[Rfam]
RNA sequence: CGGGUGUCCUGGCUCAAGUUCGCACUUCCUAUACAGUGUUAAAGCCUUGUAUCGGAAGUUUGGGCUUCGUCCCAGUGUACUCG
Numbered sequence: 001c002g003g004g005u006g007u008c009c010u011g012g013c014u015c016a017a018g019u020u021c022g023c024a025c026u027u028c029c030u031a032u033a034c035a036g037u038g039u040u041a042a043a044g045c046c047u048u049g050u051a052u053c054g055g056a057a058g059u060u061u062g063g064g065c066u067u068c069g070u071c072c073c074a075g076u077g078u079a080c081u082c083g
Base pairs, nucleotide, nucleotide: 001083002082003081004080005079006078009075010074011073012072016067017066018065019064020063021062022061027056028055029054031052032051033050034049035048036047